A member of the RNA family "DUF3800-VI RNA", 54 nucleotides long. The sequence is in the family's curated seed alignment. Pairs were carried over by alignment from the consensus structure, which is taken from published work.

RNA sequence: CGGUUAAGAGGGCUGCCAUUCGCGGUCCGCGGAGGUUUACUCCUCCCUUAUCCG
Dot-bracket structure: (((.((((.(((((((.....)))))))..(((((......))))))))).)))